RNA: Bacteroidetes FopS (family of paralogous sRNAs)
Organism: Muribaculaceae bacterium Isolate-102
RNA sequence: GUGUUUUUCAUGGUAUUAGAUUUAAGGUUAAUUAUAAAGGGCGAGUCGGGAGACUGGCCCUUUGUAAUUUUUAUGA
Number, nucleotide and partner (000 for none) at each position: 001g000002u000003g000004u000005u000006u000007u000008u000009c000010a000011u000012g000013g000014u000015a000016u000017u000018a000019g000020a000021u000022u000023u000024a000025a000026g000027g000028u000029u000030a000031a000032u000033u000034a000035u000036a000037a000038a000039g060040g059041g058042c057043g000044a055045g054046u000047c000048g000049g000050g000051a000052g000053a000054c045055u044056g000057g042058c041059c040060c039061u000062u000063u000064g000065u000066a000067a000068u000069u000070u000071u000072u000073a000074u000075g000076a000